[Rfam]
U5 spliceosomal RNA: a 114-nucleotide RNA from Myotis davidii. U5 RNA is a component of both types of known spliceosome. By type it is a spliceosomal small nuclear RNA. Rfam links the family to the GO terms U5 snRNP and spliceosomal tri-snRNP complex assembly. It scores 79 bits against the family's covariance model. The base pairs follow the family's consensus structure, which is taken from published work.

RNA sequence: AUACUCUGGUUUCUCUUUAGAUCACAUAAAUCUUUCACCUUUUACUAAAGAUUUUCAUAGAGAGGAACAAUUCUGACUUUUGAACCAAUUUUUGAGGCCUUGAAUCUGCAAGGU
Numbered sequence: 001a002u003a004c005u006c007u008g009g010u011u012u013c014u015c016u017u018u019a020g021a022u023c024a025c026a027u028a029a030a031u032c033u034u035u036c037a038c039c040u041u042u043u044a045c046u047a048a049a050g051a052u053u054u055u056c057a058u059a060g061a062g063a064g065g066a067a068c069a070a071u072u073c074u075g076a077c078u079u080u081u082g083a084a085c086c087a088a089u090u091u092u093u094g095a096g097g098c099c100u101u102g103a104a105u106c107u108g109c110a111a112g113g114u
Base pairs, nucleotide, nucleotide: 003078005076006075009068010067011066012065013064014063015062016061017060018059019058028054029053030052031051032050033049034048035047096114098113099112100111101110102109